[Rfam]
RNA sequence: GUGAUGUUUAUGAAGGUCUGUGCUGAAGGCAGGAAGACUGCUAGCACAGAUUGGAUGUCGCCAUCAC
Number, nucleotide and partner (000 for none) at each position: 001g067002u066003g065004a064005u063006g000007u000008u000009u000010a000011u000012g000013a000014a000015g052016g051017u050018c049019u048020g047021u046022g045023c044024u043025g000026a000027a000028g000029g000030c040031a039032g038033g000034a000035a000036g000037a000038c032039u031040g030041c000042u000043a024044g023045c022046a021047c020048a019049g018050a017051u016052u015053g000054g000055a000056u000057g000058u000059c000060g000061c000062c000063a005064u004065c003066a002067c001
Source information:
A member of the RNA family "Selenocysteine insertion sequence 1" from Myripristis murdjan, 67 nucleotides long. On this family, see Walczak et al., RNA 1996: "A novel RNA structural motif in the selenocysteine insertion element of eukaryotic selenoprotein mRNAs". Pairs were carried over by alignment from the consensus structure, which is taken from published work. It is annotated as a cis-regulatory element.